Rfam assigns this 102-nucleotide sequence from Corchorus capsularis to the family "MIR2275 microRNA precursor family".
RNA sequence: GAAUUGUAUGUGAGAGUUGGAGGGAAUUAAACCAAAGUAUUCCAUUAACAUUAUUAUGCCUCUAUUUUGGUUUAAUUUCCUCCAAUAUCUCACCUCCAAUUC
Numbered sequence: 001g002a003a004u005u006g007u008a009u010g011u012g013a014g015a016g017u018u019g020g021a022g023g024g025a026a027u028u029a030a031a032c033c034a035a036a037g038u039a040u041u042c043c044a045u046u047a048a049c050a051u052u053a054u055u056a057u058g059c060c061u062c063u064a065u066u067u068u069g070g071u072u073u074a075a076u077u078u079c080c081u082c083c084a085a086u087a088u089c090u091c092a093c094c095u096c097c098a099a100u101u102c
Base pairs, nucleotide, nucleotide: 004099005098006097008095011092012091013090014089016086017085018084019083020082021081023079024078025077026076027075028074029073030072032070033069034068035067036066037065038064

Lineage of the source: Eukaryota > Streptophytina > Euphyllophyta > Malvales > Corchorus. It scores 72 bits against the family's covariance model.